A member of the RNA family "tRNA" from Aquaticitalea lipolytica, 74 nucleotides long. Transfer RNA (tRNA) molecules are approximately 80 nucleotides in length. Taxonomically the source falls in Aquaticitalea (Bacteria, Pseudomonadati, Bacteroidota, Flavobacteriia). The family's consensus secondary structure is taken from published work. By type it is a transfer RNA.
RNA sequence: GGGGCAUUAGCUCAGUUGGCUAGAGCGUUUGGCUGGCAGCCAAGAGGUCAAGGGUUCGACUCCCUUAUGCUCCA
Numbered sequence: 001g002g003g004g005c006a007u008u009a010g011c012u013c014a015g016u017u018g019g020c021u022a023g024a025g026c027g028u029u030u031g032g033c034u035g036g037c038a039g040c041c042a043a044g045a046g047g048u049c050a051a052g053g054g055u056u057c058g059a060c061u062c063c064c065u066u067a068u069g070c071u072c073c074a
Stems, first nucleotide, its partner, number of pairs: 001073007010026004028044005050066005